The family of this 109-nucleotide RNA from Sorghum bicolor is "MIR5565 microRNA precursor family". The organism belongs to Sorghum, within Eukaryota.
[Rfam]
Nucleotides: 109
Base pairs, nucleotide, nucleotide: 004108005107006106007105008104009103010102011101013099014098018094019093020092021091022090023089026086027085028084029083030082031081032080035077036076037075038074039073040072041071042070043069045067046066047065
Number, partner (000 for none) and nucleotide at each position: 001000g002000u003000u004108g005107u006106c007105g008104g009103a010102u011101u012000c013099a014098c015000a016000c017000c018094a019093a020092u021091c022090c023089a024000c025000a026086u027085g028084u029083g030082u031081u032080g033000a034000g035077g036076u037075g038074g039073a040072u041071u042070g043069g044000a045067g046066u047065g048000g049000a050000a051000u052000u053000u054000g055000a056000a057000c058000u059000a060000a061000a062000u063000u064000u065047c066046a067045c068000c069043c070042c071041a072040a073039u074038c075037c076036a077035c078000a079000c080032c081031a082030a083029c084028g085027c086026a087000c088000a089023u090022g091021g092020a093019u094018u095000a096000a097000a098014g099013u100000a101011a102010a103009u104008c105007c106006g107005a108004c109000a
Rfam 15.1 lists 3,346 matches to the family in 5 species. It scores 102 bits against the family's covariance model.